[Rfam]
RNA sequence: AUUAGUUCUCAGGGCGGAGUGAAACUCUCCACCGGCGGUAAUUCAAUUUUUUGAAAAGCCCGCGAGCGCUCUUUUUAAGAGGUCAGCAGAUCUGGUUUAAUUCCAGAGCCGACGGUUAAAGUCCGGAUAAAAGAGAAUAAAU
Numbered sequence: 001a002u003u004a005g006u007u008c009u010c011a012g013g014g015c016g017g018a019g020u021g022a023a024a025c026u027c028u029c030c031a032c033c034g035g036c037g038g039u040a041a042u043u044c045a046a047u048u049u050u051u052u053g054a055a056a057a058g059c060c061c062g063c064g065a066g067c068g069c070u071c072u073u074u075u076u077a078a079g080a081g082g083u084c085a086g087c088a089g090a091u092c093u094g095g096u097u098u099a100a101u102u103c104c105a106g107a108g109c110c111g112a113c114g115g116u117u118a119a120a121g122u123c124c125g126g127a128u129a130a131a132a133g134a135g136a137a138u139a140a141a142u
Stems, first nucleotide, its partner, number of pairs: 003140001005138006017029003031122002033111002035063004058109002066087002091107005113125003
RNA: FMN riboswitch aptamer (RFN element)
Organism: Lentisphaerota bacterium